Rfam assigns this 107-nucleotide sequence from Tepidibacillus sp. HK-1 to the family "SAM riboswitch aptamer (S box leader)". The match comes from Rfam's covariance-model search (101 bits). Taxonomically the source falls in Tepidibacillus (Bacteria, Bacillati, Bacillota, Bacillaceae). The base pairs follow the family's consensus structure, which is taken from published work.
RNA sequence: UUCUUAUCCAGAGAGGCGGAGGGACUGGCCCUAUGAAGCCCGGCAACCGGUUUAAAUAAAACGCGGUGCCAAUUCCUGCAGAACAUUCAUGUUCUGAUAGAUAAGAA
Numbered sequence: 001u002u003c004u005u006a007u008c009c010a011g012a013g014a015g016g017c018g019g020a021g022g023g024a025c026u027g028g029c030c031c032u033a034u035g036a037a038g039c040c041c042g043g044c045a046a047c048c049g050g051u052u053u054a055a056a057u058a059a060a061a062c063g064c065g066g067u068g069c070c071a072a073u074u075c076c077u078g079c080a081g082a083a084c085a086u087u088c089a090u091g092u093u094c095u096g097a098u099a100g101a102u103a104a105g106a107a
Base pairs, nucleotide, nucleotide: 001107002106003105004104005103006102007101008100013041015040016039017038021031022030023029025078027076028075042070043069044068045067047066048065050062051061052060074099079096080095081094082093083092084091